[Rfam]
RNA: Small nucleolar RNA Z107/R87
Organism: Anisodus acutangulus
RNA sequence: GGUCACGGUGACGACUCCAUAAUAUUCAAGCUCAACAGACCGGAUUGCACGCUUCUCUAUUCUUAGAGGUUGCUUGCGUGUCGAUUAACCCGCUGAACUGAGUGACU
Numbered sequence: 001g002g003u004c005a006c007g008g009u010g011a012c013g014a015c016u017c018c019a020u021a022a023u024a025u026u027c028a029a030g031c032u033c034a035a036c037a038g039a040c041c042g043g044a045u046u047g048c049a050c051g052c053u054u055c056u057c058u059a060u061u062c063u064u065a066g067a068g069g070u071u072g073c074u075u076g077c078g079u080g081u082c083g084a085u086u087a088a089c090c091c092g093c094u095g096a097a098c099u100g101a102g103u104g105a106c107u
Base pairs, nucleotide, nucleotide: 001107002106003105004104005103006102